[Rfam]
RNA sequence: CUGCGGCCCGAGCGCCCGACCCAGACACCCGCCCCAGAAAACCCGGAGCGAGUAGGGGGCGGUGCGCCGGAAGGGAGGCGGGCGGGGGGCGUGGGGGGUCGUGGGCGUCUGGGGGUGGAGACCUAUUAGAUGUGACGCCGCGGCCCAGCGGGUAGCAGACCGGCGGACGCGGUGCCCGCGGAUCCCGGGUGCUGCGGCUUAUGGAGGCGGCCCUCCCAAGAGCGGCGGCCGCAGAGGCAUCCAGCCCUCACCCCCCGAUCCGGGACCGCCGGGCUCCCCGCGCUCUAGGGCAGGCGGAGAGGGAAGCGGCCGAACAGCUCGAGGCUGGGGGCUCGCGGGCGCGGCCGCGUGCCGCGGGGAGGGAGGCUGGGGGGCCGGGGCCGGGGCCGCGCCGCGGAGCGCGUCGGAGGCCGGGGCCGGGGCGCGGCGGCUCCCCGCGCGGCUCCAGGGGCUCGGGGACCCCGCCAGGGCCUUGGUGGGGCCAUG
Numbered sequence: 001c002u003g004c005g006g007c008c009c010g011a012g013c014g015c016c017c018g019a020c021c022c023a024g025a026c027a028c029c030c031g032c033c034c035c036a037g038a039a040a041a042c043c044c045g046g047a048g049c050g051a052g053u054a055g056g057g058g059g060c061g062g063u064g065c066g067c068c069g070g071a072a073g074g075g076a077g078g079c080g081g082g083c084g085g086g087g088g089g090c091g092u093g094g095g096g097g098g099u100c101g102u103g104g105g106c107g108u109c110u111g112g113g114g115g116u117g118g119a120g121a122c123c124u125a126u127u128a129g130a131u132g133u134g135a136c137g138c139c140g141c142g143g144c145c146c147a148g149c150g151g152g153u154a155g156c157a158g159a160c161c162g163g164c165g166g167a168c169g170c171g172g173u174g175c176c177c178g179c180g181g182a183u184c185c186c187g188g189g190u191g192c193u194g195c196g197g198c199u200u201a202u203g204g205a206g207g208c209g210g211c212c213c214u215c216c217c218a219a220g221a222g223c224g225g226c227g228g229c230c231g232c233a234g235a236g237g238c239a240u241c242c243a244g245c246c247c248u249c250a251c252c253c254c255c256c257g258a259u260c261c262g263g264g265a266c267c268g269c270c271g272g273g274c275u276c277c278c279c280g281c282g283c284u285c286u287a288g289g290g291c292a293g294g295c296g297g298a299g300a301g302g303g304a305a306g307c308g309g310c311c312g313a314a315c316a317g318c319u320c321g322a323g324g325c326u327g328g329g330g331g332c333u334c335g336c337g338g339g340c341g342c343g344g345c346c347g348c349g350u351g352c353c354g355c356g357g358g359g360a361g362g363g364a365g366g367c368u369g370g371g372g373g374g375c376c377g378g379g380g381c382c383g384g385g386g387c388c389g390c391g392c393c394g395c396g397g398a399g400c401g402c403g404u405c406g407g408a409g410g411c412c413g414g415g416g417c418c419g420g421g422g423c424g425c426g427g428c429g430g431c432u433c434c435c436c437g438c439g440c441g442g443c444u445c446c447a448g449g450g451g452c453u454c455g456g457g458g459a460c461c462c463c464g465c466c467a468g469g470g471c472c473u474u475g476g477u478g479g480g481g482c483c484a485u486g
Base pairs, nucleotide, nucleotide: 029377031375032374033373034372035371043362044361059355060354061353062352063351064350065349066348067347083257084256085255086254087253088252091248093246102243103242104241105240107238145181146180148179149178150177151176152175153174154173156171186231187230188229190227191226192225193224194223195222203216204215205214206213207212263320264319266317268295269294270293272291393403394402395401396400413474414473415472416471417470418469420466437454439452440451455463456462457461
Dot-bracket structure: ............................(.(((((.......((..............(((((((((...............((((((..(.(........((((.(.....................................((.(((((((.(..............).)))))))))....(((.((((((.......(((((....))))).....)))))).)))......).))))..).)...)))))).....((.(.(((.(..................).))).....................).))..........................))))))))).....))........))))).)...............((((...)))).........((((((.(................(.((..........)).)(((...)))..)..))))))............

This 486-nucleotide sequence from Bos taurus belongs to the Rfam family "FGF-2 internal ribosome entry site (IRES)". The sequence is in the family's curated seed alignment. The organism belongs to Bos, within Eukaryota. This family represents the fibroblast growth factor 2 (FGF-2) internal ribosome entry site (IRES). When expressed the FGF-2 protein plays a pivotal role in cell proliferation, differentiation and survival as well as being involved in wound-healing.